Record summary: This 128-nucleotide sequence from Salvator merianae belongs to the Rfam family "Small nucleolar RNA SNORA13". Lineage of the source: Eukaryota > Sauria > Bifurcata > Teiidae > Salvator. Gene Ontology terms of the family: nucleolus and RNA processing. It scores 82 bits against the family's covariance model. The family's RNA type in Rfam is H/ACA-box small nucleolar RNA. Rfam 15.1 lists 1,034 matches to the family in 605 species. Clan: SNORA13 clan. ACA13 is a member of the H/ACA class of snoRNA that guide the sites of modification of uridines to pseudouridines.

RNA sequence: UGCCUUUGUGUUGCCCAUUCAUUACUUUCUCCAGUGAAUGUGGUGUCAGAAAAGGCGUAUAUUAACUCUAGCUGUCAUAUGGUCAAGAGUUGGAUAUACACCUUCUUUGUAUGUCAGCUAGAACAUAC
Numbered sequence: 001u002g003c004c005u006u007u008g009u010g011u012u013g014c015c016c017a018u019u020c021a022u023u024a025c026u027u028u029c030u031c032c033a034g035u036g037a038a039u040g041u042g043g044u045g046u047c048a049g050a051a052a053a054g055g056c057g058u059a060u061a062u063u064a065a066c067u068c069u070a071g072c073u074g075u076c077a078u079a080u081g082g083u084c085a086a087g088a089g090u091u092g093g094a095u096a097u098a099c100a101c102c103u104u105c106u107u108u109g110u111a112u113g114u115c116a117g118c119u120a121g122a123a124c125a126u127a128c
Stems, first nucleotide, its partner, number of pairs: 002056006009048002012045004016040008068121007080113002084109002086106002091100001